[Rfam]
RNA sequence: GCGCAUGUGGCGUAAUUGGUAGCCGCGUUAGACUUAGGAUCUAAUGACUCAGGUCGUGGGGGUUCGAGUCCCUUCAUGCGCA
Numbered sequence: 001g002c003g004c005a006u007g008u009g010g011c012g013u014a015a016u017u018g019g020u021a022g023c024c025g026c027g028u029u030a031g032a033c034u035u036a037g038g039a040u041c042u043a044a045u046g047a048c049u050c051a052g053g054u055c056g057u058g059g060g061g062g063u064u065c066g067a068g069u070c071c072c073u074u075c076a077u078g079c080g081c082a
Stems, first nucleotide, its partner, number of pairs: 001081007010026003028044005058074005